[Rfam]
RNA sequence: UCUUAAUAAAUGCCGAAUUUCUUUUUUGCAAGAAAACGGGGGAACCAUUUCGGGUGAAUUAUUCUUGUUCCAGAGGGAGUAUAGGGAAAUUCCUACCACCGAACCCUUAGCUAACUCCGUAGGCAUCAGGGGGAAAAAUU
Numbered sequence: 001u002c003u004u005a006a007u008a009a010a011u012g013c014c015g016a017a018u019u020u021c022u023u024u025u026u027u028g029c030a031a032g033a034a035a036a037c038g039g040g041g042g043a044a045c046c047a048u049u050u051c052g053g054g055u056g057a058a059u060u061a062u063u064c065u066u067g068u069u070c071c072a073g074a075g076g077g078a079g080u081a082u083a084g085g086g087a088a089a090u091u092c093c094u095a096c097c098a099c100c101g102a103a104c105c106c107u108u109a110g111c112u113a114a115c116u117c118c119g120u121a122g123g124c125a126u127c128a129g130g131g132g133g134a135a136a137a138a139u140u
Base pairs, nucleotide, nucleotide: 011125012124013123014122018035019034020033021032022031023030036120037119038118039117040116041115052106053105054104060081061080062079063078064077065076066075084100085099